[Rfam]
RNA sequence: AACCACUGAUGAAAUCUGAUUCUGCCAAAUGAAUUGCAGUGAUUAAAUCUUUCCGUUCCACUUACUCUGAGGUU
Numbered sequence: 001a002a003c004c005a006c007u008g009a010u011g012a013a014a015u016c017u018g019a020u021u022c023u024g025c026c027a028a029a030u031g032a033a034u035u036g037c038a039g040u041g042a043u044u045a046a047a048u049c050u051u052u053c054c055g056u057u058c059c060a061c062u063u064a065c066u067c068u069g070a071g072g073u074u
Stems, first nucleotide, its partner, number of pairs: 001074004
Record summary:
Shown here is a 74-nucleotide RNA from Sphenodon punctatus, a member of the family "Small nucleolar RNA SNORD47". The base pairs follow the family's consensus structure, which was predicted with ILM. Rfam links the family to the GO terms RNA processing and nucleolus. The family has 20 seed sequences and 755 matches in Rfam 15.1. The organism belongs to Sphenodon, within Eukaryota.